[Rfam]
Xanthomonas sRNA sX9: a 76-nucleotide sequence from Xanthomonas oryzae. NCBI's taxonomy places the organism under Bacteria, Pseudomonadati, Gammaproteobacteria, Xanthomonas oryzae, Xanthomonas oryzae pv. oryzae.
RNA sequence: AUGUGCCACUCGUACACUGCGGCUUCUCCGCGUCGUCGGCACCUACCUGACGACUGCCCGCUAUGUCGUGUUAGCC
Dot-bracket structure: .(((((.....)))))...((((.(....).))))...........((((((................))))))..
For this family Rfam cites "Genome-wide transcriptome analysis of the plant pathogen Xanthomonas identifies sRNAs with putative virulence functions" (Schmidtke et al., Nucleic Acids Res, 2011).